[Rfam]
RNA sequence: GCGCGUAUGGCGGAAUUGGCAGACGCACCAGACUUAGGAUCUGGCGGGCAACCGUGGGGGUUCAAGUCCCUCUACGCGCA
Numbered sequence: 001g002c003g004c005g006u007a008u009g010g011c012g013g014a015a016u017u018g019g020c021a022g023a024c025g026c027a028c029c030a031g032a033c034u035u036a037g038g039a040u041c042u043g044g045c046g047g048g049c050a051a052c053c054g055u056g057g058g059g060g061u062u063c064a065a066g067u068c069c070c071u072c073u074a075c076g077c078g079c080a
Stems, first nucleotide, its partner, number of pairs: 001079007010026003028044005056072005

Shown here is an 80-nucleotide RNA from Paenibacillus sp. GP183, a member of the family "tRNA". Rfam classes the family as a transfer RNA. NCBI's taxonomy places the organism under Bacteria, Bacilli, Caryophanales, Paenibacillaceae, Paenibacillus. From the family's description: Transfer RNA (tRNA) molecules are approximately 80 nucleotides in length.